The record is a 420-nucleotide part of an RNA from Gossypium laxum, which matches "Eukaryotic large subunit ribosomal RNA" in Rfam. NCBI's taxonomy places the organism under Eukaryota, Viridiplantae, Magnoliopsida, Pentapetalae, Gossypium. Pairs were carried over by alignment from the consensus structure, which is taken from published work. A search with the family's covariance model found it, with a score of 2387 bits. The literature on the family includes a 2001 paper in Science by Yusupov et al., "Crystal structure of the ribosome at 5.5 A resolution".
[Rfam]
RNA sequence: CGACCUUAGGUCAGGCGGGAUUACCUGCUAAGUUUAAGCAUAUCAUUAAGCGGAGGAAACGAAACUUACCAGGAUUCCCCUAGUAAUGGCGAGCGAAUCGAAAAAAGCCUAGCUUAAGAAUCGAGCACCAUCGGCAUCUGAAUUGUAGUAUGUAGAAGCAUCCUCAAGAGGCGACCAGGCCCAAGUCCUUUAUAAAGGGCCGCCGGAGAAGGUGAGAGCCCCAUCGUGCUUGGACCCUGUAACACCAUGAGGCACUGUCUACGAGUCAGAUUGUUUGGGAAUGUAGCCCUGAUUAGGCGAUAAAUUCCAUCCAAGGCUAAAUACGGGCGAGAGACUGAUAGCGAACAAGUAUCAUGAAAGAAAGAUAAAAAGGACUUUGAAAAGAAAUUCAAAUGGUGCUUGAAAUUGUCAGGAGGGAAG
Numbered sequence: 001c002g003a004c005c006u007u008a009g010g011u012c013a014g015g016c017g018g019g020a021u022u023a024c025c026u027g028c029u030a031a032g033u034u035u036a037a038g039c040a041u042a043u044c045a046u047u048a049a050g051c052g053g054a055g056g057a058a059a060c061g062a063a064a065c066u067u068a069c070c071a072g073g074a075u076u077c078c079c080c081u082a083g084u085a086a087u088g089g090c091g092a093g094c095g096a097a098u099c100g101a102a103a104a105a106a107g108c109c110u111a112g113c114u115u116a117a118g119a120a121u122c123g124a125g126c127a128c129c130a131u132c133g134g135c136a137u138c139u140g141a142a143u144u145g146u147a148g149u150a151u152g153u154a155g156a157a158g159c160a161u162c163c164u165c166a167a168g169a170g171g172c173g174a175c176c177a178g179g180c181c182c183a184a185g186u187c188c189u190u191u192a193u194a195a196a197g198g199g200c201c202g203c204c205g206g207a208g209a210a211g212g213u214g215a216g217a218g219c220c221c222c223a224u225c226g227u228g229c230u231u232g233g234a235c236c237c238u239g240u241a242a243c244a245c246c247a248u249g250a251g252g253c254a255c256u257g258u259c260u261a262c263g264a265g266u267c268a269g270a271u272u273g274u275u276u277g278g279g280a281a282u283g284u285a286g287c288c289c290u291g292a293u294u295a296g297g298c299g300a301u302a303a304a305u306u307c308c309a310u311c312c313a314a315g316g317c318u319a320a321a322u323a324c325g326g327g328c329g330a331g332a333g334a335c336u337g338a339u340a341g342c343g344a345a346c347a348a349g350u351a352u353c354a355u356g357a358a359a360g361a362a363a364g365a366u367a368a369a370a371a372g373g374a375c376u377u378u379g380a381a382a383a384g385a386a387a388u389u390c391a392a393a394u395g396g397u398g399c400u401u402g403a404a405a406u407u408g409u410c411a412g413g414a415g416g417g418a419a420g
Base pairs, nucleotide, nucleotide: 024055025053026052027051028050029049035042036041065072066071076103079100087093106318107317108316109315114148115147116146118144119143121141122140123139125137155259156258157256158255162252163251164250165249170240173236175233176232177231178230179229180228185201188199189198190197204208211221212220269288271286272285273284274283296311297310299308352359376385377384378383